[Rfam]
RNA sequence: GACAAAAAAGUGACAAGAUAAGUAAAUAGAUAAAGUUGAAUCAGAGAACUCUGGUAGCUGAGAAAGAGUCUACUGAAUCUAUUGAAGAUGGUCUUGAUUUUUUCAAGUGUUGAUGAGGUUAAAACAAGUCAACAAUGGUUAACGCCCAUUAUUCCGUUGAGUAUAGAUUGCACUAUGCUCUUUGAGGUUGUUAUUGAAAAAUAAUAACGAAUAAAGGUGGUACCACGAAAAAAGCUUUUCGUCCUUCAG
Numbered sequence: 001g002a003c004a005a006a007a008a009a010g011u012g013a014c015a016a017g018a019u020a021a022g023u024a025a026a027u028a029g030a031u032a033a034a035g036u037u038g039a040a041u042c043a044g045a046g047a048a049c050u051c052u053g054g055u056a057g058c059u060g061a062g063a064a065a066g067a068g069u070c071u072a073c074u075g076a077a078u079c080u081a082u083u084g085a086a087g088a089u090g091g092u093c094u095u096g097a098u099u100u101u102u103u104c105a106a107g108u109g110u111u112g113a114u115g116a117g118g119u120u121a122a123a124a125c126a127a128g129u130c131a132a133c134a135a136u137g138g139u140u141a142a143c144g145c146c147c148a149u150u151a152u153u154c155c156g157u158u159g160a161g162u163a164u165a166g167a168u169u170g171c172a173c174u175a176u177g178c179u180c181u182u183u184g185a186g187g188u189u190g191u192u193a194u195u196g197a198a199a200a201a202u203a204a205u206a207a208c209g210a211a212u213a214a215a216g217g218u219g220g221u222a223c224c225a226c227g228a229a230a231a232a233a234g235c236u237u238u239u240c241g242u243c244c245u246u247c248a249g
Base pairs, nucleotide, nucleotide: 007100008099015095016094017093018092025083026082027081028080029079030078037072038071048069049068050067051066052065108134109133110132111131112130113129114128136148137147138146191206194203214246215245216244217243225242226241227240228239229238